[Rfam]
RNA sequence: AUUUAUCUUCAGGGCGGGGCGUAAUUCCCCACCGGCGGUAAAGCCCGCGAGCUAAUUUUUUAGCAUGAUUCGGUGAAACUCCGAGGCCGACAGUAUAGUCUGGAUGAAAGAAGGUAAGG
Numbered sequence: 001a002u003u004u005a006u007c008u009u010c011a012g013g014g015c016g017g018g019g020c021g022u023a024a025u026u027c028c029c030c031a032c033c034g035g036c037g038g039u040a041a042a043g044c045c046c047g048c049g050a051g052c053u054a055a056u057u058u059u060u061u062a063g064c065a066u067g068a069u070u071c072g073g074u075g076a077a078a079c080u081c082c083g084a085g086g087c088c089g090a091c092a093g094u095a096u097a098g099u100c101u102g103g104a105u106g107a108a109a110g111a112a113g114g115u116a117a118g119g
Stems, first nucleotide, its partner, number of pairs: 003117008017029003031099002033089002035048004043087002053063001069085005091102003